[Rfam]
RNA sequence: CGGCUGUAGCCAUAGAAACAAAAUUGGGGAAGAAAAUCUGGUCGGAUUGGUACUUUUUUGCGAUUGCCAAGCCGCUUACCGUUCUUCCCAUAUUA
Numbered sequence: 001c002g003g004c005u006g007u008a009g010c011c012a013u014a015g016a017a018a019c020a021a022a023a024u025u026g027g028g029g030a031a032g033a034a035a036a037u038c039u040g041g042u043c044g045g046a047u048u049g050g051u052a053c054u055u056u057u058u059u060g061c062g063a064u065u066g067c068c069a070a071g072c073c074g075c076u077u078a079c080c081g082u083u084c085u086u087c088c089c090a091u092a093u094u095a
Stems, first nucleotide, its partner, number of pairs: 027089008040076003044073002047071002049068004
This 95-nucleotide RNA from Carex littledalei belongs to the Rfam family "Small nucleolar RNA snoR109". It scores 39 bits against the family's covariance model. The family has 6 seed sequences and 680 matches in Rfam 15.1. The base pairs follow the family's consensus structure, which was predicted with WAR. Rfam classes the family as an H/ACA-box small nucleolar RNA.